[Rfam]
Description
This 195-nucleotide sequence from Oryza punctata belongs to the Rfam family "MIR1435 microRNA precursor family". The family's consensus secondary structure was predicted with RNAalifold. A search with the family's covariance model found it, with a score of 96 bits. Its family is annotated with miRNA-mediated post-transcriptional gene silencing and RISC complex in the Gene Ontology.
RNA sequence: UGACUUUUUCCCUAGUCAAACUUUUUUAAGUUUGACCAAGUUUAUAGAAAAAUGUAGAAACAUUUUCAACACAACAGAAACAUAUUAUCAAAAUAUAUUAAAUGUUAGUUUUAAUGAAACUAAUUUGGUGUUGUAGAUGUAAAUUUUUCUAUAAACUUGGUCAAACUUAAGAAGUUUUACUAGAAAAAAGUCAAA
Numbered sequence: 001u002g003a004c005u006u007u008u009u010c011c012c013u014a015g016u017c018a019a020a021c022u023u024u025u026u027u028a029a030g031u032u033u034g035a036c037c038a039a040g041u042u043u044a045u046a047g048a049a050a051a052a053u054g055u056a057g058a059a060a061c062a063u064u065u066u067c068a069a070c071a072c073a074a075c076a077g078a079a080a081c082a083u084a085u086u087a088u089c090a091a092a093a094u095a096u097a098u099u100a101a102a103u104g105u106u107a108g109u110u111u112u113a114a115u116g117a118a119a120c121u122a123a124u125u126u127g128g129u130g131u132u133g134u135a136g137a138u139g140u141a142a143a144u145u146u147u148u149c150u151a152u153a154a155a156c157u158u159g160g161u162c163a164a165a166c167u168u169a170a171g172a173a174g175u176u177u178u179a180c181u182a183g184a185a186a187a188a189a190g191u192c193a194a195a
Stems, first nucleotide, its partner, number of pairs: 005190005012183005018177009031165005045151008060140002066137002069134003075127004
The source organism's lineage runs through Eukaryota, Magnoliopsida, Liliopsida, Poales and Oryza.